[Rfam]
RNA: mir-9229 microRNA precursor family
Organism: Myotis myotis
RNA sequence: GAGACACCCUUAUGGGGCAGGACUUGUUUCAGUGAGUCUUUGAUGCUCACUGAUUCUGCUCCCUGGGUGUGUCUCU
Number, nucleotide and partner (000 for none) at each position: 001g075002a074003g073004a072005c071006a070007c069008c000009c067010u066011u065012a064013u000014g062015g061016g060017g059018c058019a057020g000021g056022a055023c000024u000025u000026g000027u000028u000029u053030c052031a051032g050033u049034g048035a047036g046037u000038c000039u000040u000041u000042g000043a000044u000045g000046c036047u035048c034049a033050c032051u031052g030053a029054u000055u022056c021057u019058g018059c017060u016061c015062c014063c000064u012065g011066g010067g009068u000069g007070u006071g005072u004073c003074u002075c001076u000